[Rfam]
The record is a 137-nucleotide sequence from Molossus molossus, which matches "Small nucleolar RNA SNORA29" in Rfam. The match comes from Rfam's covariance-model search (126 bits). About the family: ACA29 is a member of the H/ACA class of snoRNA that guide the sites of modification of uridines to pseudouridines. The family is grouped with related families in Rfam's "SNORA20 clan". On this family, see Huttenhofer et al., EMBO J 2001: "RNomics: an experimental approach that identifies 201 candidates for novel, small, non-messenger RNAs in mouse". NCBI's taxonomy places the organism under Eukaryota, Metazoa, Sarcopterygii, Boreoeutheria, Molossus. The family has 26 seed sequences and 960 matches in Rfam 15.1.

RNA sequence: UUUCCUGUUCAACUACCAAGUUUUCUCCUAAUAAUAGAUUGUAGUGGUUAUGCUUAUGAGAUAGAUUAAAACUGCCAUGAUCUGAAGAGGGAGGACUUACUUGUGUCCUCCUAUAUGAAAUGGUUAAACAAAAAACA
Numbered sequence: 001u002u003u004c005c006u007g008u009u010c011a012a013c014u015a016c017c018a019a020g021u022u023u024u025c026u027c028c029u030a031a032u033a034a035u036a037g038a039u040u041g042u043a044g045u046g047g048u049u050a051u052g053c054u055u056a057u058g059a060g061a062u063a064g065a066u067u068a069a070a071a072c073u074g075c076c077a078u079g080a081u082c083u084g085a086a087g088a089g090g091g092a093g094g095a096c097u098u099a100c101u102u103g104u105g106u107c108c109u110c111c112u113a114u115a116u117g118a119a120a121u122g123g124u125u126a127a128a129c130a131a132a133a134a135a136c137a
Stems, first nucleotide, its partner, number of pairs: 004060001006058002016047003074124004092112004